[Rfam]
RNA sequence: CCGUUAUCCAAGGGGCGCCCCGAGAAGGGGCUGAGAUACCGCUAGCGCGCGGGAACCCUUAGAACCUGAUCCGGGUCGUACCGGCGUAGGGAUGGAAAGGGCCGCACAC
Numbered sequence: 001c002c003g004u005u006a007u008c009c010a011a012g013g014g015g016c017g018c019c020c021c022g023a024g025a026a027g028g029g030g031c032u033g034a035g036a037u038a039c040c041g042c043u044a045g046c047g048c049g050c051g052g053g054a055a056c057c058c059u060u061a062g063a064a065c066c067u068g069a070u071c072c073g074g075g076u077c078g079u080a081c082c083g084g085c086g087u088a089g090g091g092a093u094g095g096a097a098a099g100g101g102c103c104g105c106a107c108a109c
Stems, first nucleotide, its partner, number of pairs: 007096004011059004016053001017031005039052004065090004071084004
The record is a 109-nucleotide sequence from Oceanibaculum indicum, which matches "TPP riboswitch aptamer (THI element)" in Rfam. On this family, see Thore et al., J Am Chem Soc 2008: "Structural basis of thiamine pyrophosphate analogues binding to the eukaryotic riboswitch". Taxonomically the source falls in Oceanibaculum indicum (Bacteria, Pseudomonadati, Pseudomonadota, Alphaproteobacteria).